[Rfam]
RNA sequence: GGCUGGUCCAAAGGUAGUGAGUGUCACUUGAUUAUUCACAGUCAGUUACAGUUAACUCCUUGUUCUUCUACUCCCCCGCCCCACUCAUGCACUUGACUAGUCUUUC
Numbered sequence: 001g002g003c004u005g006g007u008c009c010a011a012a013g014g015u016a017g018u019g020a021g022u023g024u025c026a027c028u029u030g031a032u033u034a035u036u037c038a039c040a041g042u043c044a045g046u047u048a049c050a051g052u053u054a055a056c057u058c059c060u061u062g063u064u065c066u067u068c069u070a071c072u073c074c075c076c077c078g079c080c081c082c083a084c085u086c087a088u089g090c091a092c093u094u095g096a097c098u099a100g101u102c103u104u105u106c
Base pairs, nucleotide, nucleotide: 001102002101003100004099005098006097007096008095010094011093014090015089016085017084018083019082021080030068031067034064
The family of this 106-nucleotide RNA from Microcebus murinus is "Y RNA". The family's consensus secondary structure is taken from published work. A search with the family's covariance model found it, with a score of 57 bits.